[Rfam]
RNA sequence: AUACCUUCUCGGCCUUUUGGACAUGAUCAAGUGUAGUAUCUGUUAUCAGUGUAACAACUGGUAUGUCUCCAACGAGAGACUUGCUUGUUACAUCAGUUUUUCUCUGGGGAAGUGUCUUCAUGAGCUCGCUCAAGAGCCUUCACAUGUUGCGCUGGCAUGGCACCAAGCCAGUAGCAGCACACCCUAC
Number, nucleotide and partner (000 for none) at each position: 001a000002u000003a000004c000005c000006u000007u026008c025009u000010c000011g022012g000013c020014c019015u000016u000017u000018u000019g014020g013021a000022c011023a000024u000025g008026a007027u000028c000029a000030a000031g000032u000033g000034u000035a000036g000037u000038a000039u000040c000041u000042g000043u000044u063045a062046u061047c060048a059049g058050u000051g000052u000053a000054a000055c000056a000057a000058c049059u048060g047061g046062u045063a044064u000065g080066u079067c078068u077069c076070c000071a000072a000073c000074g000075a000076g069077a068078g067079a066080c065081u000082u000083g000084c000085u000086u000087g000088u000089u000090a000091c000092a000093u000094c000095a000096g000097u000098u000099u000100u000101u000102c000103u000104c000105u000106g000107g000108g000109g141110a140111a139112g138113u000114g000115u135116c134117u000118u000119c000120a000121u132122g131123a130124g129125c000126u000127c000128g000129c124130u123131c122132a121133a000134g116135a115136g000137c000138c112139u111140u110141c109142a000143c000144a000145u179146g178147u177148u176149g175150c000151g172152c171153u170154g169155g168156c167157a000158u000159g000160g000161c000162a000163c000164c000165a000166a000167g156168c155169c154170a153171g152172u151173a000174g000175c149176a148177g147178c146179a145180c000181a000182c000183c000184c000185u000186a000187c000